[Rfam]
The record is an 86-nucleotide sequence from Gossypium aridum, which matches "MIR7486 microRNA precursor family" in Rfam.

RNA sequence: CAUGUCAGCGCGCUUUGCUGAUGUGGCAGCAAAUCGCAUCCUCGAGGGCGCGAUUAUUACCACAUCAACAAAGCGCGCUGACGUGG
Numbered sequence: 001c002a003u004g005u006c007a008g009c010g011c012g013c014u015u016u017g018c019u020g021a022u023g024u025g026g027c028a029g030c031a032a033a034u035c036g037c038a039u040c041c042u043c044g045a046g047g048g049c050g051c052g053a054u055u056a057u058u059a060c061c062a063c064a065u066c067a068a069c070a071a072a073g074c075g076c077g078c079u080g081a082c083g084u085g086g
Base pairs, nucleotide, nucleotide: 001085002084003083004082005081006080007079008078009077010076011075012074013073014072015071016070017069019067020066021065023063024062025061026060028058029057031055033054034053035052036051037050040047041046

The family's consensus secondary structure was predicted with RNAalifold.
The family has 9 seed sequences and 10,132 matches in Rfam 15.1.